A member of the RNA family "mir-375 microRNA precursor family" from Pangasianodon hypophthalmus, 65 nucleotides long. It scores 68 bits against the family's covariance model. The organism belongs to Pangasianodon, within Eukaryota. Pairs were carried over by alignment from the consensus structure, which was predicted with RNAalifold.

[Rfam]
RNA sequence: CCUCACGUUGAGCCACGCGUACAAUACGUGACCAAUCAGUUUUGUUCGUUCGGCUCGCGUUACGC
Numbered sequence: 001c002c003u004c005a006c007g008u009u010g011a012g013c014c015a016c017g018c019g020u021a022c023a024a025u026a027c028g029u030g031a032c033c034a035a036u037c038a039g040u041u042u043u044g045u046u047c048g049u050u051c052g053g054c055u056c057g058c059g060u061u062a063c064g065c
Stems, first nucleotide, its partner, number of pairs: 001064001003062001005060003009057006018048002021045004026040002